RNA: HNH endonuclease-associated RNA and ORF (HEARO) RNA
RNA sequence: GUCAUGAACCCCAUGCCUAAAGGCAGGGGGCUUGUAGGAGUCCCGAUUCAUGACCAGCCCAAGCGGUGCGAAUCCGCUACGUUCAAGGUGUCAUGGCACUCCGGAAUGCGAGCCAGUUCCGAGACACUGCCGUUGUCAGUCAUGCUGUCGUACCUGGGGGUGCGGCGAAGGCGGGCGACAGAACAAGCACCCUGGACAUGGGCGAGGCACACUUUAC
Numbered sequence: 001g002u003c004a005u006g007a008a009c010c011c012c013a014u015g016c017c018u019a020a021a022g023g024c025a026g027g028g029g030g031c032u033u034g035u036a037g038g039a040g041u042c043c044c045g046a047u048u049c050a051u052g053a054c055c056a057g058c059c060c061a062a063g064c065g066g067u068g069c070g071a072a073u074c075c076g077c078u079a080c081g082u083u084c085a086a087g088g089u090g091u092c093a094u095g096g097c098a099c100u101c102c103g104g105a106a107u108g109c110g111a112g113c114c115a116g117u118u119c120c121g122a123g124a125c126a127c128u129g130c131c132g133u134u135g136u137c138a139g140u141c142a143u144g145c146u147g148u149c150g151u152a153c154c155u156g157g158g159g160g161u162g163c164g165g166c167g168a169a170g171g172c173g174g175g176c177g178a179c180a181g182a183a184c185a186a187g188c189a190c191c192c193u194g195g196a197c198a199u200g201g202g203c204g205a206g207g208c209a210c211a212c213u214u215u216a217c
Stems, first nucleotide, its partner, number of pairs: 001054008010030002012027001016023002032040002057203005062078005081197005087191005096130002100124002102121006108213001112208003132179006139172002147166007